The family of this 179-nucleotide sequence from Peptococcus niger is "Lysine riboswitch aptamer". The source organism's lineage runs through Bacteria, Bacillati, Bacillota, Clostridia and Peptococcus.

RNA sequence: AUGUAAUGCAGAGGUUGCGAUGACAAUGAGUCGGCUGCGGAGGCGAAAAAAGCGCUGAUGAAACAGUACAAAAGGUGUCAUCGCCGAAAGAGGAAAUGCUUUUUUCAUAUCUUCUUGGAACUGGAUCAAAUAGGUCUAGGGCUGUCAAUGUACAUCCACAUUGUUGUGCUGCAAACUGA
Number, nucleotide and partner (000 for none) at each position: 001a000002u000003g000004u000005a000006a000007u173008g172009c171010a170011g169012a000013g000014g000015u000016u000017g084018c083019g082020a081021u080022g079023a078024c077025a076026a000027u000028g000029a000030g000031u000032c000033g069034g067035c066036u065037g064038c000039g000040g000041a000042g000043g000044c000045g000046a000047a000048a000049a000050a000051a000052g000053c000054g000055c000056u000057g000058a000059u000060g000061a000062a000063a000064c037065a036066g035067u034068a000069c033070a000071a000072a000073a000074g000075g000076u025077g024078u023079c022080a021081u020082c019083g018084c017085c000086g000087a000088a116089a115090g114091a113092g112093g111094a110095a000096a108097u107098g106099c000100u000101u000102u000103u000104u000105u000106c098107a097108u096109a000110u094111c093112u092113u091114c090115u089116u088117g143118g142119a000120a000121c139122u138123g137124g136125a135126u134127c133128a000129a000130a000131u000132a000133g127134g126135u125136c124137u123138a122139g121140g000141g000142c118143u117144g000145u000146c163147a162148a161149u160150g159151u158152a000153c000154a000155u000156c000157c000158a151159c150160a149161u148162u147163g146164u000165u000166g000167u000168g000169c011170u010171g009172c008173a007174a000175a000176c000177u000178g000179a000